Rfam assigns this 149-nucleotide RNA sequence from Carlito syrichta to the family "Small nucleolar RNA SNORA57". Rfam's curators write: U99 belongs to the H/ACA class of snoRNAs which are thought to guide the sites of modification of uridines to pseudouridines, the target for this family is unknown. For this family Rfam cites "Identification of 13 novel human modification guide RNAs" (Vitali et al., Nucleic Acids Res, 2003). The family has 26 seed sequences and 1,736 matches in Rfam 15.1.
RNA sequence: GCUUCUUUUCUUGGCGGGGGCCAGGUGUGUAGUCCCGCUCCCCCUUAUGUACGGAGGCAGAGGGAAAGGGCUCCGGCUCCCUCGGCGUCAUGUCUUCGGUGCCGGCGGCUUCUUGUCCACCGGUUCUAUCCUCAAGCGCCGAGACACCC
Dot-bracket structure: .((((..........(((((.(.((........)).).))))).........))))..........................((((((.............((((.((........)).))))............))))))........
Numbered sequence: 001g002c003u004u005c006u007u008u009u010c011u012u013g014g015c016g017g018g019g020g021c022c023a024g025g026u027g028u029g030u031a032g033u034c035c036c037g038c039u040c041c042c043c044c045u046u047a048u049g050u051a052c053g054g055a056g057g058c059a060g061a062g063g064g065a066a067a068g069g070g071c072u073c074c075g076g077c078u079c080c081c082u083c084g085g086c087g088u089c090a091u092g093u094c095u096u097c098g099g100u101g102c103c104g105g106c107g108g109c110u111u112c113u114u115g116u117c118c119a120c121c122g123g124u125u126c127u128a129u130c131c132u133c134a135a136g137c138g139c140c141g142a143g144a145c146a147c148c149c
Stems, first nucleotide, its partner, number of pairs: 002056004016043005022037001024035002083141006102123004107118002